[Rfam]
This 102-nucleotide RNA from Romboutsia weinsteinii belongs to the Rfam family "Purine riboswitch aptamer". Pairs were carried over by alignment from the consensus structure, which is taken from published work.
RNA sequence: AAAUAAUUUAAUAAUAUUACCUGUAUAUUUUUGAUAAUAUGGUUCAAACGUUUCUACCGGGCUACCGUAAAUUGCCUGACUACAGGAGUGAUAAAAGUCUAC
Numbered sequence: 001a002a003a004u005a006a007u008u009u010a011a012u013a014a015u016a017u018u019a020c021c022u023g024u025a026u027a028u029u030u031u032u033g034a035u036a037a038u039a040u041g042g043u044u045c046a047a048a049c050g051u052u053u054c055u056a057c058c059g060g061g062c063u064a065c066c067g068u069a070a071a072u073u074g075c076c077u078g079a080c081u082a083c084a085g086g087a088g089u090g091a092u093a094a095a096a097g098u099c100u101a102c
Base pairs, nucleotide, nucleotide: 018088020086021085022084023083024082025081030048031047032046033045034044058078059077060076061075062074064072
Dot-bracket structure: .................(.((((((....(((((.........))))).........(((((.(.......).)))))..)))))).)..............